[Rfam]
RNA: FMN riboswitch aptamer (RFN element)
Organism: Leucobacter luti
RNA sequence: GCCGUGUUCCGGGGUCGGUGAGAAUCCGAACCGGCGGUGAUAGUCCGCGAACCUCGCUUCCGCGAGGUGGAUCCGGUGUAAUUCCGGAACCGACGGUGAUGCGCGAAAAUACUCGCGCUAGUCCGGAUGAGAGGAACGCGCA
Numbered sequence: 001g002c003c004g005u006g007u008u009c010c011g012g013g014g015u016c017g018g019u020g021a022g023a024a025u026c027c028g029a030a031c032c033g034g035c036g037g038u039g040a041u042a043g044u045c046c047g048c049g050a051a052c053c054u055c056g057c058u059u060c061c062g063c064g065a066g067g068u069g070g071a072u073c074c075g076g077u078g079u080a081a082u083u084c085c086g087g088a089a090c091c092g093a094c095g096g097u098g099a100u101g102c103g104c105g106a107a108a109a110u111a112c113u114c115g116c117g118c119u120a121g122u123c124c125g126g127a128u129g130a131g132a133g134g135a136a137c138g139c140g141c142a
Base pairs, nucleotide, nucleotide: 003140004139005138006137007136008135009134010133016028017027018026032092033091034048035047036046037045043090044089051068052067053066072088073087074086075085076084094125095124096123